[Rfam]
RNA sequence: AUGACCCGGCGGCCCAUGCCGGGGCGUGGGCGCCGUGCGGCCCGAACAGCGGACCGGACCGGCUCGGGGUGAAGCCGCGUGACCCGAACGGGUCUCGUGGCCGGGCAACUCACUGGCCCGAACCCGACAGCUCACCUCGCAGGCGUCGGUGAGAAGGAAC
Numbered sequence: 001a002u003g004a005c006c007c008g009g010c011g012g013c014c015c016a017u018g019c020c021g022g023g024g025c026g027u028g029g030g031c032g033c034c035g036u037g038c039g040g041c042c043c044g045a046a047c048a049g050c051g052g053a054c055c056g057g058a059c060c061g062g063c064u065c066g067g068g069g070u071g072a073a074g075c076c077g078c079g080u081g082a083c084c085c086g087a088a089c090g091g092g093u094c095u096c097g098u099g100g101c102c103g104g105g106c107a108a109c110u111c112a113c114u115g116g117c118c119c120g121a122a123c124c125c126g127a128c129a130g131c132u133c134a135c136c137u138c139g140c141a142g143g144c145g146u147c148g149g150u151g152a153g154a155a156g157g158a159a160c
Stems, first nucleotide, its partner, number of pairs: 005023007024140003028136002034066002067125003075100004103119004
This 160-nucleotide RNA from Streptomyces hoynatensis belongs to the Rfam family "c-di-AMP riboswitch aptamer (ydaO/yuaA leader)". The source organism's lineage runs through Bacteria, Actinomycetota, Actinomycetes, Streptomycetaceae and Streptomyces.